[Rfam]
Background: The record is a 218-nucleotide sequence, which matches "Group II catalytic intron D1-D4-6" in Rfam.
RNA sequence: CGUGCAUUCCAUCCAGAAGGACGUAGCGAGUCACUGGAAGCGAGUCUUGCAUGGGUCUUGGCGACAGGAUUUAUGAAGCGUAGACAGCGGGUACAAAAGCCGCGUGAUAGAGCCUCGAAGUAAUUAUUAUUGCAGGAGGCUUUCACUUUUCAUUCAGUGGGAGCGACCGUGGACGGGCGACAAGCGAGCGCGCACACCUCAGCCGGGGUCCGAGAGCG
Numbered sequence: 001c002g003u004g005c006a007u008u009c010c011a012u013c014c015a016g017a018a019g020g021a022c023g024u025a026g027c028g029a030g031u032c033a034c035u036g037g038a039a040g041c042g043a044g045u046c047u048u049g050c051a052u053g054g055g056u057c058u059u060g061g062c063g064a065c066a067g068g069a070u071u072u073a074u075g076a077a078g079c080g081u082a083g084a085c086a087g088c089g090g091g092u093a094c095a096a097a098a099g100c101c102g103c104g105u106g107a108u109a110g111a112g113c114c115u116c117g118a119a120g121u122a123a124u125u126a127u128u129a130u131u132g133c134a135g136g137a138g139g140c141u142u143u144c145a146c147u148u149u150u151c152a153u154u155c156a157g158u159g160g161g162a163g164c165g166a167c168c169g170u171g172g173a174c175g176g177g178c179g180a181c182a183a184g185c186g187a188g189c190g191c192g193c194a195c196a197c198c199u200c201a202g203c204c205g206g207g208g209u210c211c212g213a214g215a216g217c218g
Base pairs, nucleotide, nucleotide: 012038013037014036015035016034020032021031022030024187026185027184040088041087044085045084046083047082048080049079050075051074052073053072054071055070056069057068058067059066060065110210112209113208114207115206116205117204135203136200137199138198139164140163141162144159145158146157147156169197170196171195174192175191177189178188